A member of the RNA family "Histone 3' UTR stem-loop" from Chlorocebus sabaeus, 46 nucleotides long.
Taxonomically the source falls in Chlorocebus (Eukaryota, Bilateria, Tetrapoda, Haplorrhini).
Rfam's curators write: The mRNAs of metazoan histone genes lack a poly-A tail. 3' end processing occurs at a site between a highly conserved stem-loop (modelled by this family) and a purine rich region around 20 nts downstream (the histone downstream element, or HDE). The stem-loop is bound by a 31 kDa stem-loop binding protein (SLBP - also termed the histone hairpin binding protein, or HBP). Together with U7 snRNA binding of the HDE, SLBP binding nucleate s the formation of the processing complex. The histone 3' UTR stem-loop is also involved in nucleocytoplasmic transport of the mRNA, and in stability regulation and translation efficiency in the cytoplasm.
[Rfam]
RNA sequence: CAAAAGGCUCUUUUCAGAGCCACCCACCGUUUCUACGGAAGAACUG
Numbered sequence: 001c002a003a004a005a006g007g008c009u010c011u012u013u014u015c016a017g018a019g020c021c022a023c024c025c026a027c028c029g030u031u032u033c034u035a036c037g038g039a040a041g042a043a044c045u046g
Stems, first nucleotide, its partner, number of pairs: 006021006